[Rfam]
RNA sequence: AAAAAAGUUUUCUAGGGUUCCGCAGUCUAACUGGUCUGGUCCGAGAGAAAACACACAAGUAAUUGUGUACACGGUAGGAUAAAAGCCUAGGAGUU
Numbered sequence: 001a002a003a004a005a006a007g008u009u010u011u012c013u014a015g016g017g018u019u020c021c022g023c024a025g026u027c028u029a030a031c032u033g034g035u036c037u038g039g040u041c042c043g044a045g046a047g048a049a050a051a052c053a054c055a056c057a058a059g060u061a062a063u064u065g066u067g068u069a070c071a072c073g074g075u076a077g078g079a080u081a082a083a084a085g086c087c088u089a090g091g092a093g094u095u
Stems, first nucleotide, its partner, number of pairs: 007052006015042002020039002022036001023033004053068006070090001072093001076088003
Shown here is a 95-nucleotide RNA from Enterococcus asini, a member of the family "Guanidine-I riboswitch aptamer".
The pairing is the family consensus, mapped onto this sequence.
The literature on the family includes a 2017 paper in RNA by Battaglia et al., "Structural basis for guanidine sensing by the ykkC family of riboswitches".
The match comes from Rfam's covariance-model search (85 bits).